[Rfam]
The family of this 75-nucleotide sequence from Pardalotus punctatus is "Small nucleolar RNA SNORD101". On this family, see Vitali et al., Nucleic Acids Res 2003: "Identification of 13 novel human modification guide RNAs". Lineage of the source: Eukaryota > Vertebrata > Sauropsida > Telluraves > Pardalotus. Rfam links the family to the GO terms nucleolus and RNA processing. Clan: SNORD101 clan.
RNA sequence: GUUUCGGUGAUGACUUCACAAUUUGUCAGAUACCCCUUCACUCAUCCUAUGAGUGAUAAGUGCUUUCUGACAAAC
Numbered sequence: 001g002u003u004u005c006g007g008u009g010a011u012g013a014c015u016u017c018a019c020a021a022u023u024u025g026u027c028a029g030a031u032a033c034c035c036c037u038u039c040a041c042u043c044a045u046c047c048u049a050u051g052a053g054u055g056a057u058a059a060g061u062g063c064u065u066u067c068u069g070a071c072a073a074a075c
Base pairs, nucleotide, nucleotide: 001075002074003073004072